[Rfam]
Rfam assigns this 104-nucleotide sequence from Psychromonas algicola to the family "t44 RNA". By type it is a small RNA. The family's consensus secondary structure was predicted with LocARNA. Taxonomically the source falls in Psychromonas (Bacteria, Pseudomonadota, Gammaproteobacteria, Alteromonadales). Rfam's curators write: This family consists of a number of bacterial RNA genes of between 135 and 170 bases in length. The t44 gene has been identified in several species of enteric bacteria but homologs have also been identified in Pseudomonas and Coxiella species.
RNA sequence: GGUUAUAUUAAAAAACAACACACACGCAUCGACACGUCACUCGGGGUGCCUUUUUCUGUUUAAGAAAUUAAUGGUCGAGUGUAUGGGAUGUGUGGAGGCCUAAC
Numbered sequence: 001g002g003u004u005a006u007a008u009u010a011a012a013a014a015a016c017a018a019c020a021c022a023c024a025c026g027c028a029u030c031g032a033c034a035c036g037u038c039a040c041u042c043g044g045g046g047u048g049c050c051u052u053u054u055u056c057u058g059u060u061u062a063a064g065a066a067a068u069u070a071a072u073g074g075u076c077g078a079g080u081g082u083a084u085g086g087g088a089u090g091u092g093u094g095g096a097g098g099c100c101u102a103a104c
Stems, first nucleotide, its partner, number of pairs: 023094008035085003040079004048075003052071001